[Rfam]
RNA: small nucleolar RNA snoR114
Organism: Ipomoea nil
RNA sequence: AAACAAUGAUGAAAGCUAUGCUCUUGUGGUGAUUGGGUUGCCACGGUUUGUCCGAUCUUAACCAAAUGAAUAACAGCGCCUCUGAGUUU
Numbered sequence: 001a002a003a004c005a006a007u008g009a010u011g012a013a014a015g016c017u018a019u020g021c022u023c024u025u026g027u028g029g030u031g032a033u034u035g036g037g038u039u040g041c042c043a044c045g046g047u048u049u050g051u052c053c054g055a056u057c058u059u060a061a062c063c064a065a066a067u068g069a070a071u072a073a074c075a076g077c078g079c080c081u082c083u084g085a086g087u088u089u
Base pairs, nucleotide, nucleotide: 001089002088003087004086